[Rfam]
RNA sequence: AUGCUAAAGGGAAGUAUUACCCUUUAGCAUACAUAUGUAGCACGUAGCA
Numbered sequence: 001a002u003g004c005u006a007a008a009g010g011g012a013a014g015u016a017u018u019a020c021c022c023u024u025u026a027g028c029a030u031a032c033a034u035a036u037g038u039a040g041c042a043c044g045u046a047g048c049a
Stems, first nucleotide, its partner, number of pairs: 001030011